This 248-nucleotide RNA from Pseudomonas sp. HAR-UPW-AIA-41 belongs to the Rfam family "Pseudomonas sRNA P24".
The base pairs follow the family's consensus structure, which was predicted with RNAalifold.
Rfam's curators write: This small RNA (sRNA) was computationally identified in the genome of the opportunistic pathogen Pseudomonas aeruginosa and its expression verified by Northern blot analysis. P24 is conserved across several Pseudomonas species and in Azotobacter vinelandii. It appears to be consistently located between a hypothetical protein gene and a transcriptional regulator gene (AsnC family) in the genomes of all these species. P24 has a predicted Rho independent terminator at the 3' end but the function of P24 is unknown.
Lineage of the source: Bacteria > Pseudomonadati > Pseudomonadota > Pseudomonadales > Pseudomonas.
The family's RNA type in Rfam is non-coding RNA gene.
The literature on the family includes a 2006 paper in Nucleic Acids Res by Livny et al., "Identification of 17 Pseudomonas aeruginosa sRNAs and prediction of sRNA-encoding genes in 10 diverse pathogens using the bioinformatic tool sRNAPredict2".
[Rfam]
RNA sequence: UUGCGCAAGUGAUGUUGAUGUUGGCAAUCUUCGCAAACAAUCUCCCCGUCCUUCUGGGUAACCUUUGUUCCAGUUUCAAGGCCCGGACAACACAGUCCGACCGCAGCGGCCAAUCAGUUGCUGCGGCGCCGCCGAUCCCACCGGGUCGCGCAGGCCACCGGGUCCGCACCGUCCAAUCAGACGGGCGAUAGGCAAGGGUGUCACAAGCACCUGGGAAGGACACAAAAAAGGAGGCCAGAGGCCUCCUU
Numbered sequence: 001u002u003g004c005g006c007a008a009g010u011g012a013u014g015u016u017g018a019u020g021u022u023g024g025c026a027a028u029c030u031u032c033g034c035a036a037a038c039a040a041u042c043u044c045c046c047c048g049u050c051c052u053u054c055u056g057g058g059u060a061a062c063c064u065u066u067g068u069u070c071c072a073g074u075u076u077c078a079a080g081g082c083c084c085g086g087a088c089a090a091c092a093c094a095g096u097c098c099g100a101c102c103g104c105a106g107c108g109g110c111c112a113a114u115c116a117g118u119u120g121c122u123g124c125g126g127c128g129c130c131g132c133c134g135a136u137c138c139c140a141c142c143g144g145g146u147c148g149c150g151c152a153g154g155c156c157a158c159c160g161g162g163u164c165c166g167c168a169c170c171g172u173c174c175a176a177u178c179a180g181a182c183g184g185g186c187g188a189u190a191g192g193c194a195a196g197g198g199u200g201u202c203a204c205a206a207g208c209a210c211c212u213g214g215g216a217a218g219g220a221c222a223c224a225a226a227a228a229a230g231g232a233g234g235c236c237a238g239a240g241g242c243c244u245c246c247u248u
Base pairs, nucleotide, nucleotide: 001012002011003010004009043057044056077192080189081163082162083161084160085098086097087096088095101126102125103124104123105122108119109118110117128155129154130153134147135146136145137144138143165187166186167185169184170183171182172181173180196212197211198210199209200208201207228248229247230246231245233243234242235241236240